[Rfam]
RNA sequence: CUGUAUGUACCCUGUAGAUCCGAAUUUGUGUGAUAACAGCAAUUUCACAAAUUCGUGUCUGGGGGAAUAUGCAGU
Numbered sequence: 001c002u003g004u005a006u007g008u009a010c011c012c013u014g015u016a017g018a019u020c021c022g023a024a025u026u027u028g029u030g031u032g033a034u035a036a037c038a039g040c041a042a043u044u045u046c047a048c049a050a051a052u053u054c055g056u057g058u059c060u061g062g063g064g065g066a067a068u069a070u071g072c073a074g075u
Stems, first nucleotide, its partner, number of pairs: 002073006010065003016060004021055010